[Rfam]
RNA: Bacterial small signal recognition particle RNA
Organism: Desulfurispirillum indicum
RNA sequence: GGGAAGAUCCCCUGCGGCGCAAGACUCUGAACCUCGUCAGGUCCGGGAGGAAGCAGCGAUAAGGGGUAAUUUGCGGGUGCCAGGGGUCAAUCUUCCCUCA
Numbered sequence: 001g002g003g004a005a006g007a008u009c010c011c012c013u014g015c016g017g018c019g020c021a022a023g024a025c026u027c028u029g030a031a032c033c034u035c036g037u038c039a040g041g042u043c044c045g046g047g048a049g050g051a052a053g054c055a056g057c058g059a060u061a062a063g064g065g066g067u068a069a070u071u072u073g074c075g076g077g078u079g080c081c082a083g084g085g086g087u088c089a090a091u092c093u094u095c096c097c098u099c100a
Stems, first nucleotide, its partner, number of pairs: 004094005009086006015077001018075005024067005034059004042051003